[Rfam]
RNA sequence: ACUUCCGGGCCGCCCGCCUCCGAUCGCAGAUCGGGGCGGUGGUCCUCGGGGUGAAGCCGGUGCGAACCGGCCGGGCGACCUUCCCGCCCGAACCCGACAGCUCACCUCGCAGGCGUCGGAGAGGUUCA
Numbered sequence: 001a002c003u004u005c006c007g008g009g010c011c012g013c014c015c016g017c018c019u020c021c022g023a024u025c026g027c028a029g030a031u032c033g034g035g036g037c038g039g040u041g042g043u044c045c046u047c048g049g050g051g052u053g054a055a056g057c058c059g060g061u062g063c064g065a066a067c068c069g070g071c072c073g074g075g076c077g078a079c080c081u082u083c084c085c086g087c088c089c090g091a092a093c094c095c096g097a098c099a100g101c102u103c104a105c106c107u108c109g110c111a112g113g114c115g116u117c118g119g120a121g122a123g124g125u126u127c128a
Stems, first nucleotide, its partner, number of pairs: 002029002032109005037048002049095003057070004073089004
Rfam assigns this 128-nucleotide RNA sequence from Kineococcus xinjiangensis to the family "c-di-AMP riboswitch aptamer (ydaO/yuaA leader)".
Its family is annotated with cyclic-di-AMP binding and regulation of gene expression in the Gene Ontology.
The match comes from Rfam's covariance-model search (58 bits).